[Rfam]
RNA sequence: UGGCACCCAACGUGGGACUGGAUACUGGGGGCACAUCGUAAGGGAGACGACAGAGGAAAAGGAAUGCACUCGCUAAAUCUCAAGGAAUUCGGACACGUGCCGUGGGAGCCUGCUGCGACCGAACUGAAGGUAAUUUGUGCCGUCCGGUCAUGGGGCAAGAAUUGAGCCAGCAUCAGAUUUAUGUCAAGCAAUUGAGAGAGGCUCUAAAGACACAAGGAGUAAAGGUUAGGACUGCAGAUUUAUUUCAUUUCUUUGAUUUUGUAAAGGACAUUUGUCCCU
Numbered sequence: 001u002g003g004c005a006c007c008c009a010a011c012g013u014g015g016g017a018c019u020g021g022a023u024a025c026u027g028g029g030g031g032c033a034c035a036u037c038g039u040a041a042g043g044g045a046g047a048c049g050a051c052a053g054a055g056g057a058a059a060a061g062g063a064a065u066g067c068a069c070u071c072g073c074u075a076a077a078u079c080u081c082a083a084g085g086a087a088u089u090c091g092g093a094c095a096c097g098u099g100c101c102g103u104g105g106g107a108g109c110c111u112g113c114u115g116c117g118a119c120c121g122a123a124c125u126g127a128a129g130g131u132a133a134u135u136u137g138u139g140c141c142g143u144c145c146g147g148u149c150a151u152g153g154g155g156c157a158a159g160a161a162u163u164g165a166g167c168c169a170g171c172a173u174c175a176g177a178u179u180u181a182u183g184u185c186a187a188g189c190a191a192u193u194g195a196g197a198g199a200g201g202c203u204c205u206a207a208a209g210a211c212a213c214a215a216g217g218a219g220u221a222a223a224g225g226u227u228a229g230g231a232c233u234g235c236a237g238a239u240u241u242a243u244u245u246c247a248u249u250u251c252u253u254u255g256a257u258u259u260u261g262u263a264a265a266g267g268a269c270a271u272u273u274g275u276c277c278c279u
Stems, first nucleotide, its partner, number of pairs: 006030003012025003036050004088129001089127002096121002101117005138157003143154004163206002166202003213255007223241005264279001266277004

A member of the RNA family "Mason-Pfizer monkey virus packaging signal" from Nannospalax galili, 279 nucleotides long. Lineage of the source: Eukaryota > Deuterostomia > Craniata > Spalacinae > Nannospalax. By type it is a cis-regulatory element. A reference for the family is Mustafa et al. (2004), "Mutational analysis of the predicted secondary RNA structure of the Mason-Pfizer monkey virus packaging signal", Virus Res. It scores 181 bits against the family's covariance model. Gene Ontology term of the family: viral genome packaging. The base pairs follow the family's consensus structure, which was predicted with PFOLD.